Nucleotides: 094
Stems, first nucleotide, its partner, number of pairs: 004091005036066004043059001044057004
Number, partner (000 for none) and nucleotide at each position: 001000g002000c003000u004091g005090g006089u007088g008087c009000g010000a011000u012000g013000a014000u015000g016000a017000a018000g019000c020000u021000a022000a023000u024000u025000g026000u027000g028000g029000a030000c031000u032000a033000g034000a035000g036066u037065u038064u039063c040000u041000g042000a043059u044057c045056u046055g047054g048000u049000a050000u051000u052000a053000u054047c055046c056045a057044g058000a059043a060000g061000u062000u063039g064038a065037a066036g067000a068000c069000a070000a071000a072000c073000c074000c075000u076000u077000g078000g079000c080000u081000g082000u083000c084000u085000g086000a087008g088007u089006a090005c091004c092000u093000c094000a

Rfam assigns this 94-nucleotide sequence from Amborella trichopoda to the family "Small nucleolar RNA Z157/R69/R10". A search with the family's covariance model found it, with a score of 69 bits. The base pairs follow the family's consensus structure, which was predicted with PFOLD. The source organism's lineage runs through Eukaryota, Tracheophyta, Magnoliopsida, Amborellaceae and Amborella. The literature on the family includes a 2003 paper in Nucleic Acids Res by Chen et al., "The high diversity of snoRNAs in plants: identification and comparative study of 120 snoRNA genes from Oryza sativa".